[Rfam]
RNA sequence: GUAAGGGGGCUGGUGACUUUCCCCUCUUUAAGAGGGGAGGAAGUUCCGCCCACCCCAUUUAUGGGCAGCGUCCCCUGAGAAGGGGCGGGAGAUGCAGCAGAAACGACACGGCUCCGGAAGAGAUGACGAUGAUAGUGAAAGUUGAGGACUUCCGGAGAACCGGUGAAACGGGCAUCUCCCCUGCCCGGGGUGCAAGCCGGUUUCGGCGCUUAGCCGAAUGUCACCGAAAUUACAGAAGGCGGGCUAUAGCCCCCAUAC
Numbered sequence: 001g002u003a004a005g006g007g008g009g010c011u012g013g014u015g016a017c018u019u020u021c022c023c024c025u026c027u028u029u030a031a032g033a034g035g036g037g038a039g040g041a042a043g044u045u046c047c048g049c050c051c052a053c054c055c056c057a058u059u060u061a062u063g064g065g066c067a068g069c070g071u072c073c074c075c076u077g078a079g080a081a082g083g084g085g086c087g088g089g090a091g092a093u094g095c096a097g098c099a100g101a102a103a104c105g106a107c108a109c110g111g112c113u114c115c116g117g118a119a120g121a122g123a124u125g126a127c128g129a130u131g132a133u134a135g136u137g138a139a140a141g142u143u144g145a146g147g148a149c150u151u152c153c154g155g156a157g158a159a160c161c162g163g164u165g166a167a168a169c170g171g172g173c174a175u176c177u178c179c180c181c182u183g184c185c186c187g188g189g190g191u192g193c194a195a196g197c198c199g200g201u202u203u204c205g206g207c208g209c210u211u212a213g214c215c216g217a218a219u220g221u222c223a224c225c226g227a228a229a230u231u232a233c234a235g236a237a238g239g240c241g242g243g244c245u246a247u248a249g250c251c252c253c254c255a256u257a258c
Stems, first nucleotide, its partner, number of pairs: 001258003005254007012225006021037005042245003046242005051192004056200001063186005072085005088181002093174003109162003112157008132142002196207004
Shown here is a 258-nucleotide RNA from Methanocaldococcus jannaschii, a member of the family "Archaeal RNase P". The family's RNA type in Rfam is ribozyme. About the family: Ribonuclease P (RNase P) is a ubiquitous endoribonuclease, found in archaea, bacteria and eukarya as well as chloroplasts and mitochondria. Its best characterised activity is the generation of mature 5'-ends of tRNAs by cleaving the 5'-leader elements of precursor-tRNAs. Cellular RNase Ps are ribonucleoproteins.